[Rfam]
RNA: Group II catalytic intron D1-D4-3
RNA sequence: ACUAUCGUGAGGUAGCGGGGAGAGGAAGGGAUAGCGAAAUCGAGGUUCUACGAACAGAAACGUGAUACAAGGCGUUAACAGCGGAUGAGGUGGCUACAAACACUAAAGUCCCAAAAGGUAGUCGUAACCUGUUGACGUAAAUCACGAGAGUAAUCGAGGAAAGAUGUAUGAC
Numbered sequence: 001a002c003u004a005u006c007g008u009g010a011g012g013u014a015g016c017g018g019g020g021a022g023a024g025g026a027a028g029g030g031a032u033a034g035c036g037a038a039a040u041c042g043a044g045g046u047u048c049u050a051c052g053a054a055c056a057g058a059a060a061c062g063u064g065a066u067a068c069a070a071g072g073c074g075u076u077a078a079c080a081g082c083g084g085a086u087g088a089g090g091u092g093g094c095u096a097c098a099a100a101c102a103c104u105a106a107a108g109u110c111c112c113a114a115a116a117g118g119u120a121g122u123c124g125u126a127a128c129c130u131g132u133u134g135a136c137g138u139a140a141a142u143c144a145c146g147a148g149a150g151u152a153a154u155c156g157a158g159g160a161a162a163g164a165u166g167u168a169u170g171a172c
Stems, first nucleotide, its partner, number of pairs: 002015005028172001031169002035163001040157004045151005061146006072138003076134006083111004089104004